[Rfam]
RNA sequence: CCGUUCAACUCGUCCCAGCUUCGACUGGGACUACGGGAG
Number, nucleotide and partner (000 for none) at each position: 001c036002c035003g034004u033005u000006c000007a000008a000009c000010u000011c000012g031013u030014c029015c028016c027017a026018g025019c000020u000021u000022c000023g000024a000025c018026u017027g016028g015029g014030a013031c012032u000033a004034c003035g002036g001037g000038a000039g000
This 39-nucleotide RNA sequence belongs to the Rfam family "THF-II riboswitch (folE RNA)". By type it is a cis-regulatory element. Pairs were carried over by alignment from the consensus structure, which is taken from published work. On this family, see Xu et al., Nucleic Acids Res 2023: "Structural insights into translation regulation by the THF-II riboswitch".